[Rfam]
RNA sequence: GGGUAUUUGUCUAGCAUGGGGCUAGGUAAAUAGGUAACGUACAGGUCGGGCCGCCUGUG
Numbered sequence: 001g002g003g004u005a006u007u008u009g010u011c012u013a014g015c016a017u018g019g020g021g022c023u024a025g026g027u028a029a030a031u032a033g034g035u036a037a038c039g040u041a042c043a044g045g046u047c048g049g050g051c052c053g054c055c056u057g058u059g
Base pairs, nucleotide, nucleotide: 005031006030007029008028009027010026011025012024013023014022040059041058042057043056044055045054046053

Background
This 59-nucleotide RNA belongs to the Rfam family "nhaA-I RNA". It is annotated as a riboswitch. From the family's description: Acidobacteria, Alphaproteobacteria, Betaproteobacteria and Gammaproteobacteria, Verrucomicrobia, cand. division NC10. Rfam's curators put it in the seed alignment.